[Rfam]
Clostridiales-3 RNA: a 245-nucleotide sequence from bacterium 1xD8-6. It is annotated as a small RNA. A search with the family's covariance model found it, with a score of 205 bits. The base pairs follow the family's consensus structure, which is taken from published work.

RNA sequence: AAGAGAGUCGAGGAAUCGAGAGAAGAAGAUGAAGCAGCAGAGUGCAUUUAAUGUUUACGGAAGGAUAAUAACCCACAAAGGAAUGAAAAGUUCCUUAUCCUCGCAAUGGCUAUAAGAGGAGAUAGUGUUACAUAUAAGUAAUGCGUCGUGAAGCUUUAAGCGCUCAUCUGUAAUUCCCGGGAAUGAGUACAUUCCGUCGUGUACGGGGCGAAGAGGUGGUUAAAAAUAACUGACGUACACCUACA
Numbered sequence: 001a002a003g004a005g006a007g008u009c010g011a012g013g014a015a016u017c018g019a020g021a022g023a024a025g026a027a028g029a030u031g032a033a034g035c036a037g038c039a040g041a042g043u044g045c046a047u048u049u050a051a052u053g054u055u056u057a058c059g060g061a062a063g064g065a066u067a068a069u070a071a072c073c074c075a076c077a078a079a080g081g082a083a084u085g086a087a088a089a090g091u092u093c094c095u096u097a098u099c100c101u102c103g104c105a106a107u108g109g110c111u112a113u114a115a116g117a118g119g120a121g122a123u124a125g126u127g128u129u130a131c132a133u134a135u136a137a138g139u140a141a142u143g144c145g146u147c148g149u150g151a152a153g154c155u156u157u158a159a160g161c162g163c164u165c166a167u168c169u170g171u172a173a174u175u176c177c178c179g180g181g182a183a184u185g186a187g188u189a190c191a192u193u194c195c196g197u198c199g200u201g202u203a204c205g206g207g208g209c210g211a212a213g214a215g216g217u218g219g220u221u222a223a224a225a226a227u228a229a230c231u232g233a234c235g236u237a238c239a240c241c242u243a244c245a
Stems, first nucleotide, its partner, number of pairs: 007030003016023002074150003078096007098120005121147003125144002128141004153161003180195006199240007218231005